The family of this 103-nucleotide RNA from Anaerosolibacter carboniphilus is "SAM riboswitch aptamer (S box leader)".
The SAM riboswitch is found upstream of a number of genes which code for proteins involved in methionine or cysteine biosynthesis in Gram-positive bacteria.
The base pairs follow the family's consensus structure, which is taken from published work.
RNA sequence: CUCAUAUUCAGAGAGGUGGAGGGAUCGGCCCUAUGAAACCCGGCAACCGGCUUUUUCGAGCAGCGGUGCCAAGUCCGACAGUAAAAGUACUGGAAAAUGUGAG
Numbered sequence: 001c002u003c004a005u006a007u008u009c010a011g012a013g014a015g016g017u018g019g020a021g022g023g024a025u026c027g028g029c030c031c032u033a034u035g036a037a038a039c040c041c042g043g044c045a046a047c048c049g050g051c052u053u054u055u056u057c058g059a060g061c062a063g064c065g066g067u068g069c070c071a072a073g074u075c076c077g078a079c080a081g082u083a084a085a086a087g088u089a090c091u092g093g094a095a096a097a098u099g100u101g102a103g
Stems, first nucleotide, its partner, number of pairs: 001103008013041001015040003021031003025078004042070004047066002050061003074095001079092005